MIR408 microRNA precursor family: a 114-nucleotide sequence from Chenopodium quinoa. It scores 66 bits against the family's covariance model. Its family is annotated with RISC complex and miRNA-mediated post-transcriptional gene silencing in the Gene Ontology. A reference for the family is Sunkar and Zhu (2004), "Novel and stress-regulated microRNAs and other small RNAs from Arabidopsis", Plant Cell. The source organism's lineage runs through Eukaryota, Viridiplantae, Streptophyta, Amaranthaceae and Chenopodium.

RNA sequence: UAUGGGAGAGCUAGAAGCUAGGGAAGCGGUUGAGCAUGGGAUGGAUCAAUCAACAUUGCUGUUGUUGCUCUUCCCAUGCACUGCCUCUUCCCUGGCUCUCUUCUUUAUCUCUCU
Numbered sequence: 001u002a003u004g005g006g007a008g009a010g011c012u013a014g015a016a017g018c019u020a021g022g023g024a025a026g027c028g029g030u031u032g033a034g035c036a037u038g039g040g041a042u043g044g045a046u047c048a049a050u051c052a053a054c055a056u057u058g059c060u061g062u063u064g065u066u067g068c069u070c071u072u073c074c075c076a077u078g079c080a081c082u083g084c085c086u087c088u089u090c091c092c093u094g095g096c097u098c099u100c101u102u103c104u105u106u107a108u109c110u111c112u113c114u
Stems, first nucleotide, its partner, number of pairs: 016097002019094007028085003032081001034079005040074001044070002